[Rfam]
RNA sequence: GAAAUCCUGCUUGGAAAAGCUAAAGCCAAGCCACCAAUAGCGAGUCUUGGACGUCUGGAAGUAAUUCCAGACGCUAAGCGUAGACAGCCAGGUAGUAGGCCUGAAAGUGAUUGAGCCUCGAAAAGAGUAAACUGGAGAGGUCGACGUUUACGAAAUCACGGAAGACAACACUCAUUCGUGCGUUAAAGGCGAGGAUGAAUGAGCUCUCCCGGGGUCGAAGAGCC
Numbered sequence: 001g002a003a004a005u006c007c008u009g010c011u012u013g014g015a016a017a018a019g020c021u022a023a024a025g026c027c028a029a030g031c032c033a034c035c036a037a038u039a040g041c042g043a044g045u046c047u048u049g050g051a052c053g054u055c056u057g058g059a060a061g062u063a064a065u066u067c068c069a070g071a072c073g074c075u076a077a078g079c080g081u082a083g084a085c086a087g088c089c090a091g092g093u094a095g096u097a098g099g100c101c102u103g104a105a106a107g108u109g110a111u112u113g114a115g116c117c118u119c120g121a122a123a124a125g126a127g128u129a130a131a132c133u134g135g136a137g138a139g140g141u142c143g144a145c146g147u148u149u150a151c152g153a154a155a156u157c158a159c160g161g162a163a164g165a166c167a168a169c170a171c172u173c174a175u176u177c178g179u180g181c182g183u184u185a186a187a188g189g190c191g192a193g194g195a196u197g198a199a200u201g202a203g204c205u206c207u208c209c210c211g212g213g214g215u216c217g218a219a220g221a222g223c224c
Stems, first nucleotide, its partner, number of pairs: 012036003019031003025190002038090001040088002044085004048080002050075001052073009112218001113216001115215006134209006140166003145160003171203009181193001